A member of the RNA family "Small nucleolar RNA SNORD93" from Crotophaga sulcirostris, 88 nucleotides long. The family's consensus secondary structure was predicted with RNAalifold. The family's RNA type in Rfam is C/D-box small nucleolar RNA.
RNA sequence: UGGCCGAGGAUGAAAACAAUAAUCUGAUUCUUUACCUCCUUUCAAUGAUACGCAAAAAUCUGAUGGAUUUAAGGAUUUUCUGAGGCCA
Numbered sequence: 001u002g003g004c005c006g007a008g009g010a011u012g013a014a015a016a017c018a019a020u021a022a023u024c025u026g027a028u029u030c031u032u033u034a035c036c037u038c039c040u041u042u043c044a045a046u047g048a049u050a051c052g053c054a055a056a057a058a059u060c061u062g063a064u065g066g067a068u069u070u071a072a073g074g075a076u077u078u079u080c081u082g083a084g085g086c087c088a
Stems, first nucleotide, its partner, number of pairs: 002087004